Shown here is a 274-nucleotide sequence from Heyndrickxia sporothermodurans, a member of the family "T-box leader". The family has 48 seed sequences and 19,395 matches in Rfam 15.1. Taxonomically the source falls in Heyndrickxia (Bacteria, Bacilli, Caryophanales, Bacillaceae). On this family, see Grundy et al., J Bacteriol 1994: "Interaction between the acceptor end of tRNA and the T box stimulates antitermination in the Bacillus subtilis tyrS gene: a new role for the discriminator base".
RNA sequence: UUAAAUGCAGUGAUUGGGAAUAGUACAAUGGGAUACUGCUUAAAUAAGCUUGAUAGUUAAGCUUACAUUCAGAGAGGGAAAUCAAUAGCUGAGAGAUUUCCUAAGAGUGAACAUUGGAAGGUCGCCCAUGAGUAGCUUCUGUGAAACAUAAAUUGGAGUAAUUGAAGCCGGUGAAAAGCCGUUAUCAUAGUUAAGUGCCAGGCUUUAGUGUAUGUAAUAGCUAUUGUCUGUGAAAAAAGGUGGUACCGCGAAAAUCGCUCCCUUCGUCCUUUUG
Numbered sequence: 001u002u003a004a005a006u007g008c009a010g011u012g013a014u015u016g017g018g019a020a021u022a023g024u025a026c027a028a029u030g031g032g033a034u035a036c037u038g039c040u041u042a043a044a045u046a047a048g049c050u051u052g053a054u055a056g057u058u059a060a061g062c063u064u065a066c067a068u069u070c071a072g073a074g075a076g077g078g079a080a081a082u083c084a085a086u087a088g089c090u091g092a093g094a095g096a097u098u099u100c101c102u103a104a105g106a107g108u109g110a111a112c113a114u115u116g117g118a119a120g121g122u123c124g125c126c127c128a129u130g131a132g133u134a135g136c137u138u139c140u141g142u143g144a145a146a147c148a149u150a151a152a153u154u155g156g157a158g159u160a161a162u163u164g165a166a167g168c169c170g171g172u173g174a175a176a177a178g179c180c181g182u183u184a185u186c187a188u189a190g191u192u193a194a195g196u197g198c199c200a201g202g203c204u205u206u207a208g209u210g211u212a213u214g215u216a217a218u219a220g221c222u223a224u225u226g227u228c229u230g231u232g233a234a235a236a237a238a239g240g241u242g243g244u245a246c247c248g249c250g251a252a253a254a255u256c257g258c259u260c261c262c263u264u265c266g267u268c269c270u271u272u273u274g
Stems, first nucleotide, its partner, number of pairs: 007133002015128004026116005039105003078100006136167004141162002169181003199230005237271004248267005